[Rfam]
RNA sequence: CGAAUUAUUACCAUCAUUCCCUAGGAAUGGUGGGCUUUGAUUCGUGUAUUGUUUAUCAAACCCGCCCAGGAGGCGGGUUUU
Numbered sequence: 001c002g003a004a005u006u007a008u009u010a011c012c013a014u015c016a017u018u019c020c021c022u023a024g025g026a027a028u029g030g031u032g033g034g035c036u037u038u039g040a041u042u043c044g045u046g047u048a049u050u051g052u053u054u055a056u057c058a059a060a061c062c063c064g065c066c067c068a069g070g071a072g073g074c075g076g077g078u079u080u081u
Stems, first nucleotide, its partner, number of pairs: 011033007058080009
Dot-bracket structure: ..........(((((((.........)))))))........................(((((((((.....))))))))).